[Rfam]
RNA sequence: GAAUCAGGUGAUGAAGAAAAUACUGCAACAAUAUGAUGGAUACGCUCCAUUUUCCAUGAUUCCUAGUAUUUAAGUCUCUGAUGAUU
Numbered sequence: 001g002a003a004u005c006a007g008g009u010g011a012u013g014a015a016g017a018a019a020a021u022a023c024u025g026c027a028a029c030a031a032u033a034u035g036a037u038g039g040a041u042a043c044g045c046u047c048c049a050u051u052u053u054c055c056a057u058g059a060u061u062c063c064u065a066g067u068a069u070u071u072a073a074g075u076c077u078c079u080g081a082u083g084a085u086u
Base pairs, nucleotide, nucleotide: 001086002085004084005083006082038055039054040053042051